RNA sequence: GCUACCUGAUGCCUUGCCAGCUUCGUUAUUGAUUAGCUAAACGAAAGCGGCGUGCGUCAUCACGCGCGUGAAUAACUAUCUGAUUUCU
Numbered sequence: 001g002c003u004a005c006c007u008g009a010u011g012c013c014u015u016g017c018c019a020g021c022u023u024c025g026u027u028a029u030u031g032a033u034u035a036g037c038u039a040a041a042c043g044a045a046a047g048c049g050g051c052g053u054g055c056g057u058c059a060u061c062a063c064g065c066g067c068g069u070g071a072a073u074a075a076c077u078a079u080c081u082g083a084u085u086u087c088u
Base pairs, nucleotide, nucleotide: 016051017050018049020048021047022046023045024043025042026041027040052067053066054065055064056063057062
This 88-nucleotide RNA belongs to the Rfam family "Peptidase-S11 RNA". Rfam's curators put it in the seed alignment.